The family of this 190-nucleotide RNA sequence from Necator americanus is "U2 spliceosomal RNA". Its family is annotated with pre-mRNA branch point binding, U2 snRNP and mRNA branch site recognition in the Gene Ontology.
Nucleotides: 190
Stems, first nucleotide, its partner, number of pairs: 007026003011022004048067006069084006113143007123134004146183006153175003157171002
Number, partner (000 for none) and nucleotide at each position: 001000a002000u003000c004000g005000c006000u007026u008025c009024u010000c011022g012021g013020c014019c015000u016000u017000u018000u019014g020013g021012c022011u023000a024009a025008g026007a027000u028000c029000a030000a031000a032000g033000u034000u035000u036000a037000g038000u039000u040000u041000c042000u043000g044000u045000u046000c047000u048067u049066a050065u051064c052063g053062a054000a055000u056000u057000a058000a059000c060000c061000u062053u063052c064051g065050a066049u067048a068000g069084a070083g071082a072081u073080u074079c075000a076000a077000u078000u079074g080073a081072g082071u083070c084069u085000c086000g087000u088000u089000a090000a091000g092000g093000u094000u095000a096000a097000c098000c099000u100000a101000u102000u103000u104000u105000u106000g107000g108000g109000a110000c111000c112000g113143g114142a115141u116140g117139a118138a119137g120000c121000a122000g123134u124133g125132a126131g127000c128000u129000u130000g131126c132125u133124c134123g135000c136000a137119c138118u139117u140116c141115a142114u143113c144000a145000c146183g147182g148181g149180u150179c151178g152000g153175c154174c155173c156000a157171g158170c159000g160000u161000u162000g163000c164000a165000c166000u167000g168000c169000u170158g171157c172000a173155g174154g175153g176000a177000u178151c179150g180149g181148c182147c183146c184000a185000c186000c187000u188000c189000c190000a
It scores 145 bits against the family's covariance model. The source organism's lineage runs through Eukaryota, Ecdysozoa, Rhabditida, Rhabditina and Necator.